[Rfam]
RNA sequence: UGACCGGGACGACCCGCUGCACGUUCUUUCAUCCGGGGACGACCUCG
Numbered sequence: 001u002g003a004c005c006g007g008g009a010c011g012a013c014c015c016g017c018u019g020c021a022c023g024u025u026c027u028u029u030c031a032u033c034c035g036g037g038g039a040c041g042a043c044c045u046c047g
Stems, first nucleotide, its partner, number of pairs: 003018001005016004034047005

This 47-nucleotide RNA from Halomonas heilongjiangensis belongs to the Rfam family "Guanidine-II riboswitch aptamer (mini-ykkC)". The source organism's lineage runs through Bacteria, Pseudomonadati, Gammaproteobacteria, Oceanospirillales and Halomonas. Pairs were carried over by alignment from the consensus structure, which is taken from published work. For this family Rfam cites "Biochemical Validation of a Second Guanidine Riboswitch Class in Bacteria" (Sherlock et al., Biochemistry, 2017). Simpler in structure and has fewer highly conserved nucleotide positions than the ykkC-yxkD leader. Despite this each of its two stem-loop structures directly bind free guanidine. Therefore, mini-ykkC RNA motif represents a distinct class of guanidine-sensing RNAs. Its crystal structure was also determined.